[Rfam]
RNA sequence: CAUAACGUGGUUCGAAACCAUCCCACGCAAAAAAACUAAGGAGCG
Number, nucleotide and partner (000 for none) at each position: 001c000002a000003u000004a000005a000006c027007g026008u025009g024010g023011u000012u000013c000014g000015a000016a037017a000018c000019c000020a000021u000022c000023c010024c009025a008026c007027g006028c000029a000030a000031a000032a000033a000034a000035a000036c000037u016038a000039a000040g000041g000042a000043g000044c000045g000
RNA: PreQ1 (pre queuosine) riboswitch aptamer
Organism: Cerasibacillus terrae